[Rfam]
RNA sequence: GAUACCUUUAAUAACAGUCCAGAGAGGCUGGGAAGGUUGCUCGGAAAUACAAAGACUGCUGCGCGCAGUCCCUUUGUAUAGUUUUUUCUGAACGUAAACCCUCCCGCCAAUUAUGGCAGGAGGGUUUUUAUA
Number, nucleotide and partner (000 for none) at each position: 001g000002a000003u000004a037005c036006c035007u034008u033009u032010a000011a000012u000013a000014a000015c030016a029017g028018u027019c026020c000021a000022g000023a000024g000025a000026g019027g018028c017029u016030g015031g000032g009033a008034a007035g006036g005037u004038u000039g000040c000041u000042c000043g000044g000045a000046a000047a079048u078049a077050c076051a075052a074053a073054g072055a000056c000057u000058g000059c000060u000061g000062c000063g000064c000065g000066c000067a000068g000069u000070c000071c000072c054073u053074u052075u051076g050077u049078a048079u047080a000081g000082u000083u000084u000085u000086u000087u000088c000089u000090g000091a000092a000093c000094g000095u000096a127097a126098a125099c124100c123101c122102u121103c120104c119105c000106g117107c116108c115109a114110a000111u000112u000113a000114u109115g108116g107117c106118a000119g104120g103121a102122g101123g100124g099125u098126u097127u096128u000129u000130a000131u000132a000

About this RNA:
Rfam assigns this 132-nucleotide RNA sequence from Sporosarcina limicola to the family "PyrR binding site". Its family is annotated with pyrimidine nucleobase biosynthetic process and pyrimidine nucleobase transport in the Gene Ontology. Rfam's curators write: This family represents the PyrR binding site and terminator structure.